FMN riboswitch aptamer (RFN element): a 147-nucleotide sequence from Sporosarcina luteola.
[Rfam]
RNA sequence: ACGACUCUUCGGGGCAAGGUGAAAUUCCUUACCGGCGGUGAUCAAGCAUUGCUUGUUAGUCCGUGACCCGUUCUUCCCUACCGGAAGACGGUGGAGCUGGUGAAACUCCGGCACCGACAGUUAAAGUCUGGAUGGGAGAAGUUGCUC
Numbered sequence: 001a002c003g004a005c006u007c008u009u010c011g012g013g014g015c016a017a018g019g020u021g022a023a024a025u026u027c028c029u030u031a032c033c034g035g036c037g038g039u040g041a042u043c044a045a046g047c048a049u050u051g052c053u054u055g056u057u058a059g060u061c062c063g064u065g066a067c068c069c070g071u072u073c074u075u076c077c078c079u080a081c082c083g084g085a086a087g088a089c090g091g092u093g094g095a096g097c098u099g100g101u102g103a104a105a106c107u108c109c110g111g112c113a114c115c116g117a118c119a120g121u122u123a124a125a126g127u128c129u130g131g132a133u134g135g136g137a138g139a140a141g142u143u144g145c146u147c
Base pairs, nucleotide, nucleotide: 003145007141008140009139010138017029018028019027031127032126033116034115035064036063037062038061059114060113068091069090070089071088096112097111098110099109100108118130119129120128
A search with the family's covariance model found it, with a score of 103 bits. NCBI's taxonomy places the organism under Bacteria, Bacillota, Caryophanales, Caryophanaceae, Sporosarcina.